[Rfam]
Nucleotides: 069
Base pairs, nucleotide, nucleotide: 006023007022008021009020036052037051038050043063044062
Number, partner (000 for none) and nucleotide at each position: 001000a002000c003000g004000a005000c006023a007022u008021g009020g010000a011000g012000a013000u014000c015000u016000g017000a018000a019000a020009c021008c022007a023006u024000a025000c026000a027000a028000a029000a030000a031000a032000a033000c034000g035000a036052g037051g038050c039000g040000g041000a042000a043063c044062c045000g046000a047000a048000a049000a050038g051037c052036c053000a054000a055000a056000a057000g058000a059000g060000u061000a062044g063043g064000a065000u066000a067000a068000u069000u